[Rfam]
Overview: Shown here is a 171-nucleotide RNA from Carassius auratus, a member of the family "Small Cajal body specific RNA 1". Rfam 15.1 lists 715 matches to the family in 617 species. A reference for the family is Darzacq et al. (2002), "Cajal body-specific small nuclear RNAs: a novel class of 2'-O-methylation and pseudouridylation guide RNAs", EMBO J. scaRNAs are a specific class of small nuclear RNAs which localise to the Cajal bodies and guide the modification of RNA polymerase II transcribed spliceosomal RNAs U1, U2, U4, U5 and U12. ACA35 belong to the H/ACA box class of guide RNAs as it has the predicted hairpin-hinge-hairpin-tail structure, conserved H/ACA-box motifs and is found associated with GAR1. It is predicted to guide pseudouridylation of the U2 spliceosomal snRNA at residue U89.
RNA sequence: AUGCACCAGAUACUGACCUGUCCGCCUGCAGCUCAGUUGUGUUUUCUCACACUGAUGCAUGCGUGAUGGUGGCUGUCAGGUCCAGAUGGUGCUACAGAAACACAAGACCCUGAGAUUUAAGCUCUGAGAGGCGAGGCGCUCCCUCAGGUGUUAUAACUCUAGGGCACACUA
Numbered sequence: 001a002u003g004c005a006c007c008a009g010a011u012a013c014u015g016a017c018c019u020g021u022c023c024g025c026c027u028g029c030a031g032c033u034c035a036g037u038u039g040u041g042u043u044u045u046c047u048c049a050c051a052c053u054g055a056u057g058c059a060u061g062c063g064u065g066a067u068g069g070u071g072g073c074u075g076u077c078a079g080g081u082c083c084a085g086a087u088g089g090u091g092c093u094a095c096a097g098a099a100a101c102a103c104a105a106g107a108c109c110c111u112g113a114g115a116u117u118u119a120a121g122c123u124c125u126g127a128g129a130g131g132c133g134a135g136g137c138g139c140u141c142c143c144u145c146a147g148g149u150g151u152u153a154u155a156a157c158u159c160u161a162g163g164g165c166a167c168a169c170u171a
Stems, first nucleotide, its partner, number of pairs: 003092006015082004020077001022075001024073003027063004031058002033055001035053003039050003108164002126144001128142001130140002145162001147160002150157002